RNA sequence: UUAAAAACUUUAGCGCCAUGCACCGGCAGGUACGUAAAAAUGAUGUCGGUUAACGAGGUUUCAGGUUAUCGAAAAUUCGGCGGAUGCCUGGACGCAUAUAUGGAUGCGCAUCUCGAGCCAAAUAUGAUGGAGACAUCAAAACAAAGCGAGAGAACCAUAAAAA
Number, nucleotide and partner (000 for none) at each position: 001u000002u000003a000004a000005a000006a000007a000008c000009u000010u000011u000012a000013g000014c000015g000016c000017c000018a000019u000020g000021c000022a050023c049024c048025g047026g046027c045028a044029g000030g000031u000032a000033c000034g000035u000036a000037a000038a000039a000040a000041u000042g000043a000044u028045g027046u026047c025048g024049g023050u022051u000052a000053a000054c000055g000056a000057g000058g000059u000060u092061u091062c090063a089064g088065g000066u000067u000068a000069u080070c079071g078072a077073a000074a000075a000076u000077u072078c071079g070080g069081c000082g000083g000084a000085u000086g000087c000088c064089u063090g062091g061092a060093c108094g107095c106096a105097u104098a000099u000100a000101u000102g000103g000104a097105u096106g095107c094108g093109c000110a000111u151112c150113u149114c148115g147116a000117g000118c000119c000120a000121a000122a000123u139124a000125u138126g137127a136128u135129g134130g000131a000132g000133a000134c129135a128136u127137c126138a125139a123140a000141a000142c000143a000144a000145a000146g000147c115148g114149a113150g112151a111152g000153a000154a000155c000156c000157a000158u000159a000160a000161a000162a000163a000

A member of the RNA family "glmS glucosamine-6-phosphate activated ribozyme aptamer" from Agathobacter rectalis, 163 nucleotides long. It is annotated as a riboswitch. Pairs were carried over by alignment from the consensus structure, which is taken from published work. The match comes from Rfam's covariance-model search (68 bits). From the family's description: This entry contains a glucosamine-6-phosphate activated ribozyme that is found in the mRNA for GlmS. GlmS is an enzyme that uses fructose-6-phosphate and glutamine to generate glucosamine-6-phosphate. The ribozyme catalyses self cleavage of the glmS mRNA that is thought to regulate GlmS activity.